Shown here is a 122-nucleotide RNA sequence from Candidatus Glomeribacter gigasporarum, a member of the family "Betaproteobacteria-1 RNA". The base pairs follow the family's consensus structure, which is taken from published work. Taxonomically the source falls in Candidatus Glomeribacter gigasporarum (Bacteria, Betaproteobacteria, Burkholderiales, Burkholderiaceae).

RNA sequence: CACCCAUACGGUCGGCGCAAAUACGGCAGCGUAUGGGGAAGAGGCCCCUACUGUGAGGCAGGUCUGAAACAGGGGCGAGUGGCGGCGAAGGCAGCACCACUGACCUUACAAGGCUGCCGCGU
Numbered sequence: 001c002a003c004c005c006a007u008a009c010g011g012u013c014g015g016c017g018c019a020a021a022u023a024c025g026g027c028a029g030c031g032u033a034u035g036g037g038g039a040a041g042a043g044g045c046c047c048c049u050a051c052u053g054u055g056a057g058g059c060a061g062g063u064c065u066g067a068a069a070c071a072g073g074g075g076c077g078a079g080u081g082g083c084g085g086c087g088a089a090g091g092c093a094g095c096a097c098c099a100c101u102g103a104c105c106u107u108a109c110a111a112g113g114c115u116g117c118c119g120c121g122u
Base pairs, nucleotide, nucleotide: 003037004036005035006034007033008032009031010030026054027053028052029051044076045075046074047073048072049071061105062104063103064102078101079100080099081098082097090118091117092116093115094114095113